[Rfam]
Small nucleolar RNA SNORD113/SNORD114 family: a 72-nucleotide RNA from Canis lupus. Rfam 15.1 lists 5,721 matches to the family in 142 species. The base pairs follow the family's consensus structure, which is taken from published work. About the family: The imprinted human domain at 14q32 contains two clusters of tandemly repeated small nucleolar RNAs named 14q(I) and 14q(II) snoRNAs. These two clusters are named SNORD113 and SNORD114 respectively in the HGNC approved gene symbol nomenclature. The snoRNAs found in both clusters are clearly related and are represented here by a single family. These snoRNAs are intron encoded and are processed from the tissue-specific non-coding human MEG8 RNA, which lies downstream of the imprinted genes DLK1 and GTL2. snoRNAs 14q(I) and 14q(II) differ from previously identified C/D box snoRNAs in their expression profiles and lack of complementarity to rRNA and snRNA. Homologues of these snoRNAs are found in the imprinted non-coding mouse transcript Rian, and in the rat non-coding Bsr (brain-specific repetitive) RNA. The source organism's lineage runs through Eukaryota, Gnathostomata, Laurasiatheria, Carnivora and Canis lupus. Rfam classes the family as a C/D-box small nucleolar RNA.
RNA sequence: UGGAUCGAUGAUGACCACUGGUGGCGUGUGAGUCAUAUACAAUGAAUAUGUGUCUGGAAGUCCGAGGUCCAA
Dot-bracket structure: .(((((...........................................................)))))..